Notes: Rfam assigns this 77-nucleotide RNA sequence from Brachybacterium faecium to the family "ZMP/ZTP riboswitch aptamer (pfl RNA motif)". The family's consensus secondary structure is taken from published work. Lineage of the source: Bacteria > Bacillati > Actinomycetes > Brachybacterium > Brachybacterium faecium. Its family is annotated with regulation of purine nucleotide biosynthetic process and one-carbon metabolic process in the Gene Ontology.

RNA sequence: GUGGGGGCACACGACUGGCGAAGGUGGGGGACCACCGGGGAGUGACCUCGUGGGCAUCGACCGCCUGGGUGCCCGCA
Numbered sequence: 001g002u003g004g005g006g007g008c009a010c011a012c013g014a015c016u017g018g019c020g021a022a023g024g025u026g027g028g029g030g031a032c033c034a035c036c037g038g039g040g041a042g043u044g045a046c047c048u049c050g051u052g053g054g055c056a057u058c059g060a061c062c063g064c065c066u067g068g069g070u071g072c073c074c075g076c077a
Stems, first nucleotide, its partner, number of pairs: 003049004010044003015039002017065004024035004054072005